[Rfam]
RNA sequence: AGCAGCUUUAUGUAUGACAACUGAGUUUGAGCGUUUAAGUUGAGUGUUAUCCCGGAUAGCCUUUGACCGUUUCAUAUGCUGUGUGCCUCCAUUUAGUUUUUGCUUCCGGCCAGUACCUGCCAAAAUGGCAAUGCAUUUAUUUAUAUAUAGGAAAGUCACAUGUCUGACAAAAUGAAAGGUCAAGUUAAGUGGUUCAACGAAUCUAAAGGCUUUGGUUUCAUCACUCCAGCUGAUGGCAGCAAAGAUGUUUUCGUUCACUUCUCUGCCAUUCAGGGCGCAGGUUUCAAAACCCUGGGCGAAGGCCAACAAGUAGAAUUCACCAUCGAGAAUGGUGCUAAAGGCCCGGCUGCAGCUAACGUAACUCCGCUGUAAGAUAUAGCCAAACCGAAUUCCAAGCCUGCCGCGUAAGUGGCGGGCUUUUUU
Numbered sequence: 001a002g003c004a005g006c007u008u009u010a011u012g013u014a015u016g017a018c019a020a021c022u023g024a025g026u027u028u029g030a031g032c033g034u035u036u037a038a039g040u041u042g043a044g045u046g047u048u049a050u051c052c053c054g055g056a057u058a059g060c061c062u063u064u065g066a067c068c069g070u071u072u073c074a075u076a077u078g079c080u081g082u083g084u085g086c087c088u089c090c091a092u093u094u095a096g097u098u099u100u101u102g103c104u105u106c107c108g109g110c111c112a113g114u115a116c117c118u119g120c121c122a123a124a125a126u127g128g129c130a131a132u133g134c135a136u137u138u139a140u141u142u143a144u145a146u147a148u149a150g151g152a153a154a155g156u157c158a159c160a161u162g163u164c165u166g167a168c169a170a171a172a173u174g175a176a177a178g179g180u181c182a183a184g185u186u187a188a189g190u191g192g193u194u195c196a197a198c199g200a201a202u203c204u205a206a207a208g209g210c211u212u213u214g215g216u217u218u219c220a221u222c223a224c225u226c227c228a229g230c231u232g233a234u235g236g237c238a239g240c241a242a243a244g245a246u247g248u249u250u251u252c253g254u255u256c257a258c259u260u261c262u263c264u265g266c267c268a269u270u271c272a273g274g275g276c277g278c279a280g281g282u283u284u285c286a287a288a289a290c291c292c293u294g295g296g297c298g299a300a301g302g303c304c305a306a307c308a309a310g311u312a313g314a315a316u317u318c319a320c321c322a323u324c325g326a327g328a329a330u331g332g333u334g335c336u337a338a339a340g341g342c343c344c345g346g347c348u349g350c351a352g353c354u355a356a357c358g359u360a361a362c363u364c365c366g367c368u369g370u371a372a373g374a375u376a377u378a379g380c381c382a383a384a385c386c387g388a389a390u391u392c393c394a395a396g397c398c399u400g401c402c403g404c405g406u407a408a409g410u411g412g413c414g415g416g417c418u419u420u421u422u423u
Base pairs, nucleotide, nucleotide: 004022005021007019009017028228029227033224034223042219043218046217048215051214052209053208054204055203056202057201061199063197064196065195066194069193070192071191075162076161077160078159080158081157088151089150091148092147094145096116097115099113128134129133164179165178231325232324233323234322235321236320244252245251255313257311258310259309260308264305265304266302267301269296270295271294272293273292274291277290330345331344332343334342335341336340346370347369349367352363354361377388379386394419395418396417397416398415399414400413401412402411403410404409
Shown here is a 423-nucleotide RNA sequence from Morganella morganii, a member of the family "cspA thermoregulator".
A search with the family's covariance model found it, with a score of 203 bits.
The base pairs follow the family's consensus structure, which is taken from published work.
Rfam links the family to the GO terms response to temperature stimulus and regulation of translation.
Lineage of the source: Bacteria > Pseudomonadota > Gammaproteobacteria > Morganella morganii > Morganella morganii subsp. morganii.
By type it is an RNA thermoregulator.